The family of this 92-nucleotide sequence from Sorghum bicolor is "MIR5387 microRNA precursor family". The base pairs follow the family's consensus structure, which was predicted with RNAalifold.
RNA sequence: UUGUAAUACGAACCGGUGCUAAAGGGUCCUGCCCAACGCCUACUGACAGGUGCUGUCGGACAGGGACCCUUUAGCACCAGUUCGUGUGCUAA
Numbered sequence: 001u002u003g004u005a006a007u008a009c010g011a012a013c014c015g016g017u018g019c020u021a022a023a024g025g026g027u028c029c030u031g032c033c034c035a036a037c038g039c040c041u042a043c044u045g046a047c048a049g050g051u052g053c054u055g056u057c058g059g060a061c062a063g064g065g066a067c068c069c070u071u072u073a074g075c076a077c078c079a080g081u082u083c084g085u086g087u088g089c090u091a092a
Base pairs, nucleotide, nucleotide: 003089004088006087007086008085009084010083011082012081013080015078016077017076018075019074020073021072022071023070024069025068026067027066029064030063032059033058036056037055043049044048
The organism belongs to Sorghum, within Eukaryota.